This 107-nucleotide sequence from Lactuca sativa belongs to the Rfam family "Plant small nucleolar RNA R71". It is annotated as a C/D-box small nucleolar RNA. Lineage of the source: Eukaryota > Streptophytina > Tracheophyta > Asteraceae > Lactuca. A search with the family's covariance model found it, with a score of 58 bits. On this family, see Brown et al., Trends Plant Sci 2003: "Plant snoRNAs: functional evolution and new modes of gene expression". Rfam links the family to the GO terms RNA processing and nucleolus.
[Rfam]
RNA sequence: AGAUCAUUUUGGGGACAAUUCUUUAGUAACCCCUUAUACCUCUCCCAUGCUUCAUAUAAAGAUUCUACCACUUGUUGCUCAAAAUUAGCUAUGGCUUUCUUGAUUUU
Numbered sequence: 001a002g003a004u005c006a007u008u009u010u011g012g013g014g015a016c017a018a019u020u021c022u023u024u025a026g027u028a029a030c031c032c033c034u035u036a037u038a039c040c041u042c043u044c045c046c047a048u049g050c051u052u053c054a055u056a057u058a059a060a061g062a063u064u065c066u067a068c069c070a071c072u073u074g075u076u077g078c079u080c081a082a083a084a085u086u087a088g089c090u091a092u093g094g095c096u097u098u099c100u101u102g103a104u105u106u107u
Stems, first nucleotide, its partner, number of pairs: 001107001003105001005102002057074002